[Rfam]
RNA sequence: UUGAAAAUUUUGAAGACUUCAACUUGCAUACUUGGAGGAUUUAAAGACUUCAACUUCAUACUUGGAGGAUUUAAAGACUUCCACU
Numbered sequence: 001u002u003g004a005a006a007a008u009u010u011u012g013a014a015g016a017c018u019u020c021a022a023c024u025u026g027c028a029u030a031c032u033u034g035g036a037g038g039a040u041u042u043a044a045a046g047a048c049u050u051c052a053a054c055u056u057c058a059u060a061c062u063u064g065g066a067g068g069a070u071u072u073a074a075a076g077a078c079u080u081c082c083a084c085u
Stems, first nucleotide, its partner, number of pairs: 001083001003081003009075006017067005025058002028056001032053006